[Rfam]
RNA: U2 spliceosomal RNA
Organism: Ameiurus melas
Nucleotides: 173
Base pairs, nucleotide, nucleotide: 001006029048030047031046032045033044034043050066051065052064053063054062055061094126095125096124097123098122100120101119106117107116108115109114129166130165131164132163133162134161136158137157138156139155140154
Number, partner (000 for none) and nucleotide at each position: 001006a002000u003000u004000u005000u006001u007000u008000c009000g010000a011000a012000a013000g014000a015000a016000a017000a018000a019000a020000a021000u022000c023000u024000g025000u026000u027000c028000u029048u030047a031046u032045c033044a034043g035000u036000u037000u038000a039000a040000u041000a042000c043034c044033u045032g046031a047030u048029a049000c050066g051065u052064c053063c054062u055061c056000c057000a058000u059000u060000c061055g062054a063053g064052g065051a066050c067000u068000u069000c070000a071000u072000a073000u074000u075000a076000a077000a078000c079000g080000g081000a082000u083000u084000u085000u086000u087000c088000g089000a090000c091000c092000a093000a094126g095125g096124a097123g098122c099000u100120g101119g102000g103000a104000g105000a106117g107116g108115g109114g110000c111000u112000u113000g114109c115108u116107c117106c118000g119101u120100c121000c122098g123097c124096u125095c126094c127000a128000c129166g130165c131164a132163u133162c134161g135000a136158c137157c138156u139155g140154g141000u142000a143000u144000u145000g146000c147000a148000g149000u150000a151000c152000c153000u154140c155139c156138a157137g158136g159000a160000a161134c162133g163132g164131u165130g166129c167000a168000c169000u170000c171000u172000u173000u